[Rfam]
RNA sequence: CGUGUGGUGUCCGGCUUAGAAUCGGAUAGCGACACGGCCUAUAUAUGAGGU
Numbered sequence: 001c002g003u004g005u006g007g008u009g010u011c012c013g014g015c016u017u018a019g020a021a022u023c024g025g026a027u028a029g030c031g032a033c034a035c036g037g038c039c040u041a042u043a044u045a046u047g048a049g050g051u
Stems, first nucleotide, its partner, number of pairs: 001036005007030002011025004015019001
About this RNA:
L31-Gammaproteobacteria ribosomal protein leader: a 51-nucleotide RNA sequence. For this family Rfam cites "Discovery of 20 novel ribosomal leader candidates in bacteria and archaea" (Eckert and Weinberg, BMC Microbiol, 2020). The family's RNA type in Rfam is cis-regulatory leader.